[Rfam]
The family of this 71-nucleotide RNA from Pseudolycoriella hygida is "mir-87 microRNA precursor family".
For this family Rfam cites "Evolution, biogenesis, expression, and target predictions of a substantially expanded set of Drosophila microRNAs" (Ruby et al., Genome Res, 2007).
The family's consensus secondary structure was predicted with RNAalifold.
RNA sequence: UGCCAAUGAGCCUGAAUUUUGCUAGACCUGGGUGUUAAUUUGGGUGAGCAAAUUUUCAGGUGUGUUGGAGA
Numbered sequence: 001u002g003c004c005a006a007u008g009a010g011c012c013u014g015a016a017u018u019u020u021g022c023u024a025g026a027c028c029u030g031g032g033u034g035u036u037a038a039u040u041u042g043g044g045u046g047a048g049c050a051a052a053u054u055u056u057c058a059g060g061u062g063u064g065u066u067g068g069a070g071a
Stems, first nucleotide, its partner, number of pairs: 003068005010061006016054001018052003022048002025045001027044003
The source organism's lineage runs through Eukaryota, Opisthokonta, Eumetazoa, Hexapoda and Pseudolycoriella.